The family of this 168-nucleotide sequence from Paenibacillus antri is "FMN riboswitch aptamer (RFN element)". Pairs were carried over by alignment from the consensus structure, which is taken from published work. A search with the family's covariance model found it, with a score of 100 bits. Its family is annotated with FMN binding in the Gene Ontology. The organism belongs to Paenibacillus, within Bacteria. From the family's description: The RFN element is a highly conserved domain that is found frequently in the 5'-untranslated regions of prokaryotic mRNAs that encode for flavin mononucleotide (FMN) biosynthesis and transport proteins. This element is a metabolite-dependent riboswitch that directly binds FMN in the absence of proteins.
RNA sequence: CAUAUCCUUCGGGGCCGGGUGAAAUUCCCGACCGGCGGUGAUGCGCGUGAACUCGCGCUCAGUCCGUGACCCGACGCGACGGAAGGCGGCGACGCCGAAGCCGACGCGGCGGUGGACUCGGUGAAACUCCGAGACCGACAGUGACAGUCUGGAUGGGAGAAGGAGACG
Numbered sequence: 001c002a003u004a005u006c007c008u009u010c011g012g013g014g015c016c017g018g019g020u021g022a023a024a025u026u027c028c029c030g031a032c033c034g035g036c037g038g039u040g041a042u043g044c045g046c047g048u049g050a051a052c053u054c055g056c057g058c059u060c061a062g063u064c065c066g067u068g069a070c071c072c073g074a075c076g077c078g079a080c081g082g083a084a085g086g087c088g089g090c091g092a093c094g095c096c097g098a099a100g101c102c103g104a105c106g107c108g109g110c111g112g113u114g115g116a117c118u119c120g121g122u123g124a125a126a127c128u129c130c131g132a133g134a135c136c137g138a139c140a141g142u143g144a145c146a147g148u149c150u151g152g153a154u155g156g157g158a159g160a161a162g163g164a165g166a167c168g
Base pairs, nucleotide, nucleotide: 003166005164006163007162008161009160010159017029018028019027031148032147033137034136035067036066037065038064062135063134071112072111117133118132119131120130121129139151140150141149
Dot-bracket structure: ..(.((((((......(((.......))).[[((((((.......................[[))))...((......................................))....(((((.......)))))]])).(((.....]]))).......)))))).)..